[Rfam]
The family of this 78-nucleotide sequence from Caenorhabditis remanei is "Small nucleolar RNA sn2343". It is annotated as a C/D-box small nucleolar RNA. The literature on the family includes a 2006 paper in Genome Res by Deng et al., "Organization of the Caenorhabditis elegans small non-coding transcriptome: genomic features, biogenesis, and expression".

RNA sequence: CGGCUAUGAUGAUUUCCUAUUGCCGUUUACCCGUCUGAGGAAAACCGUGCUUGAGACUUUUGGAAGUUGGCUGAGCCG
Number, nucleotide and partner (000 for none) at each position: 001c078002g077003g076004c075005u000006a000007u000008g000009a000010u000011g000012a000013u000014u000015u000016c000017c000018u000019a000020u000021u000022g000023c000024c000025g000026u000027u000028u000029a000030c000031c000032c000033g000034u000035c000036u000037g000038a000039g000040g000041a000042a000043a000044a000045c000046c000047g000048u000049g000050c000051u000052u000053g000054a000055g000056a000057c000058u000059u000060u000061u000062g000063g000064a000065a000066g000067u000068u000069g000070g000071c000072u000073g000074a000075g004076c003077c002078g001